[Rfam]
RNA sequence: GCCGCCACUCACACCUGCUGCCAGCGCCGGGCGCUGGUCCUGAUCGCUUGGCGCUGUCAGUGGGUGUGAACGGCAGCUG
Numbered sequence: 001g002c003c004g005c006c007a008c009u010c011a012c013a014c015c016u017g018c019u020g021c022c023a024g025c026g027c028c029g030g031g032c033g034c035u036g037g038u039c040c041u042g043a044u045c046g047c048u049u050g051g052c053g054c055u056g057u058c059a060g061u062g063g064g065u066g067u068g069a070a071c072g073g074c075a076g077c078u079g
Stems, first nucleotide, its partner, number of pairs: 004074003009069012022056007
Overview:
A member of the RNA family "mir-9198 microRNA precursor family" from Cnephaeus nilssonii, 79 nucleotides long. Taxonomically the source falls in Cnephaeus (Eukaryota, Deuterostomia, Teleostomi, Chiroptera). Rfam 15.1 lists 64 matches to the family in 7 species.